[Rfam]
RNA sequence: AAGUAGCGACGACUAAUGGAUACUGCCUAAAAUAGGCAACCCAUCCCCGCGAAGUAAUACUUUGCGGUGAUCCCGCGGGGAAUGUGGUGUGUGAGUGGGGUGUGAGUUUAGUACGUAGGUGCUGACGGAGUCAGCAAAUCGUGCAUACGGUUGGCCCGGGCCUUCAGUAUCUUACGAUGAUUUUCACCUCCGUGC
Numbered sequence: 001a002a003g004u005a006g007c008g009a010c011g012a013c014u015a016a017u018g019g020a021u022a023c024u025g026c027c028u029a030a031a032a033u034a035g036g037c038a039a040c041c042c043a044u045c046c047c048c049g050c051g052a053a054g055u056a057a058u059a060c061u062u063u064g065c066g067g068u069g070a071u072c073c074c075g076c077g078g079g080g081a082a083u084g085u086g087g088u089g090u091g092u093g094a095g096u097g098g099g100g101u102g103u104g105a106g107u108u109u110a111g112u113a114c115g116u117a118g119g120u121g122c123u124g125a126c127g128g129a130g131u132c133a134g135c136a137a138a139u140c141g142u143g144c145a146u147a148c149g150g151u152u153g154g155c156c157c158g159g160g161c162c163u164u165c166a167g168u169a170u171c172u173u174a175c176g177a178u179g180a181u182u183u184u185c186a187c188c189u190c191c192g193u194g195c
Stems, first nucleotide, its partner, number of pairs: 042069004047064001074194005098189005105184001111144005120136006146169003150165001
R2 RNA element: a 195-nucleotide RNA from Drosophila virilis. Lineage of the source: Eukaryota > Ecdysozoa > Pancrustacea > Dicondylia > Drosophila. It scores 41 bits against the family's covariance model. Pairs were carried over by alignment from the consensus structure, which is taken from published work. By type it is a cis-regulatory element. The family has 15 seed sequences and 3,698 matches in Rfam 15.1.